A member of the RNA family "MIR408 microRNA precursor family" from Aegilops tauschii, 204 nucleotides long. On this family, see Mica et al., BMC Genomics 2009: "High throughput approaches reveal splicing of primary microRNA transcripts and tissue specific expression of mature microRNAs in Vitis vinifera".

RNA sequence: GAUUUGAGAGGGCAGAGGAGACAGGGAUGGAGCAGAGCAAGGGAUGGGGCAAACAACAAACUUCAACUGCUUCCUUCCACUGAUCACCUCCUGAUUAUAUGACAAGAGCGAGAGAGUUGUGAGAGAUGAGAGCUUUUGUUAUUGUUGUUGUUGUUGCUCCCUCCCUGCACUGCCUCUUCCCUGCCUCCCCUCCCAUCUAACUCU
Dot-bracket structure: .................(((.((((((..(.((((.(((.(.(...((((((.....................................................................................................))))))...)).))).)))).)..)))))).))).................